Source information:
This 92-nucleotide sequence from Rhodopseudomonas palustris belongs to the Rfam family "Rhizobiales-2 RNA". Rfam's curators put it in the seed alignment.
RNA sequence: AUCGCCGCCCAACCCGUGGAGUCGCGUCCGGCACGGGCGCCUCAUCCACCCCGUGUCGAACCGACCCGCCCGGCUGUCCCCCCGGGCGGGUU
Numbered sequence: 001a002u003c004g005c006c007g008c009c010c011a012a013c014c015c016g017u018g019g020a021g022u023c024g025c026g027u028c029c030g031g032c033a034c035g036g037g038c039g040c041c042u043c044a045u046c047c048a049c050c051c052c053g054u055g056u057c058g059a060a061c062c063g064a065c066c067c068g069c070c071c072g073g074c075u076g077u078c079c080c081c082c083c084g085g086g087c088g089g090g091u092u
Base pairs, nucleotide, nucleotide: 002019003018004017005016027059028058030057031056032055033054034053063092064091065090066089067088068087069086070085071084072083073082